[Rfam]
A member of the RNA family "sodF sRNA" from Streptomyces minutiscleroticus, 91 nucleotides long. Its family is annotated with negative regulation of translation, mRNA binding and regulation of mRNA stability in the Gene Ontology. The source organism's lineage runs through Bacteria, Bacillati, Actinomycetota, Actinomycetes and Streptomyces. The pairing is the family consensus, mapped onto this sequence. The literature on the family includes a 2014 paper in Nucleic Acids Res by Kim et al., "Inverse regulation of Fe- and Ni-containing SOD genes by a Fur family regulator Nur through small RNA processed from 3'UTR of the sodF mRNA". It scores 90 bits against the family's covariance model.
RNA sequence: ACGUCCUGCCUCGUGAUCGUCUUCUCACCGCUCACCGGGCAGGCGGCACGACGGAGAACCCCCGCAAGGACAGGACUCGCGGGGGUUCUCC
Numbered sequence: 001a002c003g004u005c006c007u008g009c010c011u012c013g014u015g016a017u018c019g020u021c022u023u024c025u026c027a028c029c030g031c032u033c034a035c036c037g038g039g040c041a042g043g044c045g046g047c048a049c050g051a052c053g054g055a056g057a058a059c060c061c062c063c064g065c066a067a068g069g070a071c072a073g074g075a076c077u078c079g080c081g082g083g084g085g086u087u088c089u090c091c
Base pairs, nucleotide, nucleotide: 002045003044005043006042007041008040009039010038011037013035014034015033016032019029053091054090055089056088057087058086059085060084061083062082063081064080065079067077068076
Dot-bracket structure: .((.(((((((.((((..(.........)..)))).))))))))).......(((((((((((((.((.......)).)))))))))))))